Background:
The record is a 97-nucleotide RNA from Lactococcus garvieae, which matches "S10-Clostridia ribosomal protein leader" in Rfam. The match comes from Rfam's covariance-model search (36 bits). On this family, see Eckert and Weinberg, BMC Microbiol 2020: "Discovery of 20 novel ribosomal leader candidates in bacteria and archaea". Rfam classes the family as a cis-regulatory leader.
RNA sequence: UAUUAGCGACGAAGCGAGAGGUUGCGACACACCCGAAAGUAUUGCCAUACUUCAGUGUCGGUUUUCCCGCUGAGCUAGCCUAUUAACAAAUAGACGA
Numbered sequence: 001u002a003u004u005a006g007c008g009a010c011g012a013a014g015c016g017a018g019a020g021g022u023u024g025c026g027a028c029a030c031a032c033c034c035g036a037a038a039g040u041a042u043u044g045c046c047a048u049a050c051u052u053c054a055g056u057g058u059c060g061g062u063u064u065u066c067c068c069g070c071u072g073a074g075c076u077a078g079c080c081u082a083u084u085a086a087c088a089a090a091u092a093g094a095c096g097a
Stems, first nucleotide, its partner, number of pairs: 014070003018066004025060005080096001083094002